[Rfam]
RNA sequence: UAUAAAAAAAAAUAAAACCGUCGAAGGGCGGUGACGCAAAGCUACGAGUUUACGCCGAAGGAUAGGAUGGUCGGGUUGCCGGA
Numbered sequence: 001u002a003u004a005a006a007a008a009a010a011a012a013u014a015a016a017a018c019c020g021u022c023g024a025a026g027g028g029c030g031g032u033g034a035c036g037c038a039a040a041g042c043u044a045c046g047a048g049u050u051u052a053c054g055c056c057g058a059a060g061g062a063u064a065g066g067a068u069g070g071u072c073g074g075g076u077u078g079c080c081g082g083a
Stems, first nucleotide, its partner, number of pairs: 013036001017032006040077004045073003048068003056061001
RNA: c-di-GMP-I riboswitch aptamer